[Rfam]
Rfam assigns this 70-nucleotide RNA to the family "narK RNA". Rfam's curators put it in the seed alignment. The family's RNA type in Rfam is cis-regulatory element. The base pairs follow the family's consensus structure, which is taken from published work.
RNA sequence: GGCACGCUUGCUGCAGUCCAGCUCACAACGGUGGCCAACGGCGGUCACCAACCCACGACAAAGGCGUCGC
Numbered sequence: 001g002g003c004a005c006g007c008u009u010g011c012u013g014c015a016g017u018c019c020a021g022c023u024c025a026c027a028a029c030g031g032u033g034g035c036c037a038a039c040g041g042c043g044g045u046c047a048c049c050a051a052c053c054c055a056c057g058a059c060a061a062a063g064g065c066g067u068c069g070c
Stems, first nucleotide, its partner, number of pairs: 030049007